The family of this 47-nucleotide RNA from Geobacter sp. SVR is "Guanidine-II riboswitch aptamer (mini-ykkC)". Taxonomically the source falls in Geobacter (Bacteria, Thermodesulfobacteriota, Desulfuromonadia, Geobacterales). Simpler in structure and has fewer highly conserved nucleotide positions than the ykkC-yxkD leader. Despite this each of its two stem-loop structures directly bind free guanidine. It scores 44 bits against the family's covariance model.
[Rfam]
RNA sequence: AAGUGGGGACGACCUCACCGCUCCACUACACAUCGAGGACGACCUCG
Numbered sequence: 001a002a003g004u005g006g007g008g009a010c011g012a013c014c015u016c017a018c019c020g021c022u023c024c025a026c027u028a029c030a031c032a033u034c035g036a037g038g039a040c041g042a043c044c045u046c047g
Base pairs, nucleotide, nucleotide: 003018004017005016006015007014008013034047035046036045037044038043